[Rfam]
RNA sequence: UACCUGAUUGAUUCUGUCAGCGCUAUAUGCUCAGUUAAAAGAUUAAGCCAUGCAUGAGGAGUUCAGCUUCAAGUGAAACUGCGAACGGCUCAUUAGAGCAGAUGUCAUUUAUUCGGAAAAUCCUAUUGGAUAACUGCGGUAAUUCUGGAGCUAAUACAUGCGGUUAAACCCUGACUUUCGAAAGGGUGCAAUUAUUAGAGCAAAUCAAUCAUUUUCGGAUGUAGUUUGCUGACUCUGAAUAACGCAGCAUAUCGGCGGCUUGUUCGCCGAUAAUCCGAAAAAGUGUCUGCCCUAUCAACCUGAUGGUAGUCUAUUAGUCUACCAUGGUUAUUACGGGUAACGGAGAAUAAGGGUUCGACUCCGGAGAGGGAGCCUUAGAAACGGCUACCACAUCCAAGGAAGGCAGCAGGCGCGAAACUUAUCCAAUCUUGAAUAGAUGAGAUAGUGACUAAAAAUAAAAAGACCAUUCCUAUGGAACGGUUAUUUCAAUGAGUUGAUCAUAAACCUUUUUUCGAGUAUCAAGUGGAGGGCAAGUCUGGUGCCAGCAGCCGCGGUAAUUCCAGCUCCACUAGUGUAAAUCGUCAUUGCUGC
Numbered sequence: 001u002a003c004c005u006g007a008u009u010g011a012u013u014c015u016g017u018c019a020g021c022g023c024u025a026u027a028u029g030c031u032c033a034g035u036u037a038a039a040a041g042a043u044u045a046a047g048c049c050a051u052g053c054a055u056g057a058g059g060a061g062u063u064c065a066g067c068u069u070c071a072a073g074u075g076a077a078a079c080u081g082c083g084a085a086c087g088g089c090u091c092a093u094u095a096g097a098g099c100a101g102a103u104g105u106c107a108u109u110u111a112u113u114c115g116g117a118a119a120a121u122c123c124u125a126u127u128g129g130a131u132a133a134c135u136g137c138g139g140u141a142a143u144u145c146u147g148g149a150g151c152u153a154a155u156a157c158a159u160g161c162g163g164u165u166a167a168a169c170c171c172u173g174a175c176u177u178u179c180g181a182a183a184g185g186g187u188g189c190a191a192u193u194a195u196u197a198g199a200g201c202a203a204a205u206c207a208a209u210c211a212u213u214u215u216c217g218g219a220u221g222u223a224g225u226u227u228g229c230u231g232a233c234u235c236u237g238a239a240u241a242a243c244g245c246a247g248c249a250u251a252u253c254g255g256c257g258g259c260u261u262g263u264u265c266g267c268c269g270a271u272a273a274u275c276c277g278a279a280a281a282a283g284u285g286u287c288u289g290c291c292c293u294a295u296c297a298a299c300c301u302g303a304u305g306g307u308a309g310u311c312u313a314u315u316a317g318u319c320u321a322c323c324a325u326g327g328u329u330a331u332u333a334c335g336g337g338u339a340a341c342g343g344a345g346a347a348u349a350a351g352g353g354u355u356c357g358a359c360u361c362c363g364g365a366g367a368g369g370g371a372g373c374c375u376u377a378g379a380a381a382c383g384g385c386u387a388c389c390a391c392a393u394c395c396a397a398g399g400a401a402g403g404c405a406g407c408a409g410g411c412g413c414g415a416a417a418c419u420u421a422u423c424c425a426a427u428c429u430u431g432a433a434u435a436g437a438u439g440a441g442a443u444a445g446u447g448a449c450u451a452a453a454a455a456u457a458a459a460a461a462g463a464c465c466a467u468u469c470c471u472a473u474g475g476a477a478c479g480g481u482u483a484u485u486u487c488a489a490u491g492a493g494u495u496g497a498u499c500a501u502a503a504a505c506c507u508u509u510u511u512u513c514g515a516g517u518a519u520c521a522a523g524u525g526g527a528g529g530g531c532a533a534g535u536c537u538g539g540u541g542c543c544a545g546c547a548g549c550c551g552c553g554g555u556a557a558u559u560c561c562a563g564c565u566c567c568a569c570u571a572g573u574g575u576a577a578a579u580c581g582u583c584a585u586u587g588c589u590g591c
Stems, first nucleotide, its partner, number of pairs: 004020005022580001024578001026576006035452003040446001041413001047411003051408003056082001060080003068073001089366003098290004104284002108282002114277004127158002134150002137147003168187005175180001192242005204230001206228002212221001214219001252270007291337003298328003303325007341363004345356004368389002371386003391402001393400002419444001421443003427439001429437002459486003462482004467477004493513001497509001523569006536563004545552002